[Rfam]
RNA sequence: GGUCUGAUGCCACGUCGCCUAUAGCUUUAACAGCGUUGACCGGCGAUGCUAUGAUUGGACCGAAAGCGAUUCCAUGUUUCGCACACUGAUAGGAACCUGUGGAUCUGGGUCUUACACCGUUGGUCCACAGUUAAUUUCUGCAAUUACAUUU
Numbered sequence: 001g002g003u004c005u006g007a008u009g010c011c012a013c014g015u016c017g018c019c020u021a022u023a024g025c026u027u028u029a030a031c032a033g034c035g036u037u038g039a040c041c042g043g044c045g046a047u048g049c050u051a052u053g054a055u056u057g058g059a060c061c062g063a064a065a066g067c068g069a070u071u072c073c074a075u076g077u078u079u080c081g082c083a084c085a086c087u088g089a090u091a092g093g094a095a096c097c098u099g100u101g102g103a104u105c106u107g108g109g110u111c112u113u114a115c116a117c118c119g120u121u122g123g124u125c126c127a128c129a130g131u132u133a134a135u136u137u138c139u140g141c142a143a144u145u146a147c148a149u150u151u
Base pairs, nucleotide, nucleotide: 002060003059004058005057006056007055008054009052013048014047015046016045017044018043022039024034025033026032079143081141082140083139092132093131097130098129099128101126102125103124104123105122
Small nucleolar RNA snoR2/U65: a 151-nucleotide RNA sequence from Carpinus fangiana.
Its Rfam clan is "SNORA65 clan".
On this family, see Shaw et al., J Cell Sci 1998: "Localization and processing from a polycistronic precursor of novel snoRNAs in maize".